The record is a 279-nucleotide RNA from Orycteropus afer, which matches "HIF-1 alpha IRES" in Rfam. This family represents the hypoxia-inducible factor 1-alpha internal ribosome entry site. HIF-1a is a subunit of the HIF-1 transcription factor, which induces transcription of several genes involved in the cellular response to hypoxia. Rfam links the family to the GO term ribosome binding. The match comes from Rfam's covariance-model search (217 bits). Rfam classes the family as an internal ribosome entry site.

[Rfam]
RNA sequence: CUGGUCUGAGGGAACGCGAGGAUCGCCCUCGCCGGGGCUUCGUCCAGUGCAUCGGGCCAGGCCCUGACAAGCACCCCACGAAGGGCUCUUUCGAGCCGCACUUGGAUCUCUGCGAUUGCCGCCUCCUUCUCCUGCCUCAGGACUCGGGAGGAUUCCUGCCUCGCAACCCCGCCUCUGGACCUGAUUCUUGUGUCUGCGGGUGGAGGGAGCUAGUGCUUAGGCCGGAGCGAGCCUGGGGGCCGCCGGCCGCGAAGGCAUCGCGGGGACCCAUUCGCCAUG
Dot-bracket structure: .(.........)...((((((.....)))))).(...........................)......................(.(.(.......................................(((((............))))))).)..........................(((.((((....(((......))).)))).))).........(.(.(((...........)))).).................................